Description
The record is a 281-nucleotide RNA sequence from Nocardioides mesophilus, which matches "raiA RNA" in Rfam. It scores 121 bits against the family's covariance model. The family's RNA type in Rfam is riboswitch.

RNA sequence: UCCGUCCGGGUCCGUGGUUGCGUCGCCGGGAUCCUGCCCGCACGGGCACCCCGUCGGCUAGCCGAUGCCAGUCGCAGGCGAAACGGUCCACGUAAGGCGCGUCCCGGGCAACCGGGCCGCCGAUCACGGUGCGGCUUAGAAGUCAGUCCUGCCUCCCACGUCCGGUCAGAUGCCGGGCGCCCGGGGGAGAAGGCCAGUAGUGGUGUGCCCCAGAGCGGGCGGAGAGCUGCGAACGUCUCAGCAGGCGGUUGUGGGGUCGAAGACCAGGUCGGCCGGGCGGG
Numbered sequence: 001u002c003c004g005u006c007c008g009g010g011u012c013c014g015u016g017g018u019u020g021c022g023u024c025g026c027c028g029g030g031a032u033c034c035u036g037c038c039c040g041c042a043c044g045g046g047c048a049c050c051c052c053g054u055c056g057g058c059u060a061g062c063c064g065a066u067g068c069c070a071g072u073c074g075c076a077g078g079c080g081a082a083a084c085g086g087u088c089c090a091c092g093u094a095a096g097g098c099g100c101g102u103c104c105c106g107g108g109c110a111a112c113c114g115g116g117c118c119g120c121c122g123a124u125c126a127c128g129g130u131g132c133g134g135c136u137u138a139g140a141a142g143u144c145a146g147u148c149c150u151g152c153c154u155c156c157c158a159c160g161u162c163c164g165g166u167c168a169g170a171u172g173c174c175g176g177g178c179g180c181c182c183g184g185g186g187g188a189g190a191a192g193g194c195c196a197g198u199a200g201u202g203g204u205g206u207g208c209c210c211c212a213g214a215g216c217g218g219g220c221g222g223a224g225a226g227c228u229g230c231g232a233a234c235g236u237c238u239c240a241g242c243a244g245g246c247g248g249u250u251g252u253g254g255g256g257u258c259g260a261a262g263a264c265c266a267g268g269u270c271g272g273c274c275g276g277g278c279g280g281g
Base pairs, nucleotide, nucleotide: 001281002280003279004278005277006276007275008274009273012272013271014270015266016265017264018263019262065252066251067250068078070136071135072134073133074132075131076130087129088128092124096120099117100116127259148245149244150243151242152241153187154186155185156184157183191238192237193236194235200230201229206223208221